[Rfam]
RNA sequence: UUGGCGAAAAGGAACCAGUUGCAUGUUUUAAAAAUGCAAUCGGGCUGACACUCGCCUAAAGAAAAGAUUAAAAUUAUGGUCGCGCAUUUUUUGACCAUAAAAUUUGUGCACUACCCAAUUUUAAGACAUUU
Numbered sequence: 001u002u003g004g005c006g007a008a009a010a011g012g013a014a015c016c017a018g019u020u021g022c023a024u025g026u027u028u029u030a031a032a033a034a035u036g037c038a039a040u041c042g043g044g045c046u047g048a049c050a051c052u053c054g055c056c057u058a059a060a061g062a063a064a065a066g067a068u069u070a071a072a073a074u075u076a077u078g079g080u081c082g083c084g085c086a087u088u089u090u091u092u093g094a095c096c097a098u099a100a101a102a103u104u105u106g107u108g109c110a111c112u113a114c115c116c117a118a119u120u121u122u123a124a125g126a127c128a129u130u131u
Stems, first nucleotide, its partner, number of pairs: 003056005011046002015043002018040007068124008078115003082109002085106002089102001091101002